[Rfam]
This 67-nucleotide RNA sequence from Otolemur garnettii belongs to the Rfam family "U7 small nuclear RNA". On this family, see Marz et al., Genomics Proteomics Bioinformatics 2007: "U7 snRNAs: a computational survey". The source organism's lineage runs through Eukaryota, Chordata, Craniata, Vertebrata and Otolemur. Animal histone pre-mRNAs are spliced by a different mechanism than nuclear pre-mRNAs and self-splicing introns.
RNA sequence: AGGUGUUACGGCUAUUUUAGAAUUUCUCUAGCAGGGUUUCUGGUUUUCAUGGGGAAAAAAAUCCCAU
Numbered sequence: 001a002g003g004u005g006u007u008a009c010g011g012c013u014a015u016u017u018u019a020g021a022a023u024u025u026c027u028c029u030a031g032c033a034g035g036g037u038u039u040c041u042g043g044u045u046u047u048c049a050u051g052g053g054g055a056a057a058a059a060a061a062u063c064c065c066a067u
Base pairs, nucleotide, nucleotide: 034064035063036062037061038060039059041057044056045055046054047053048052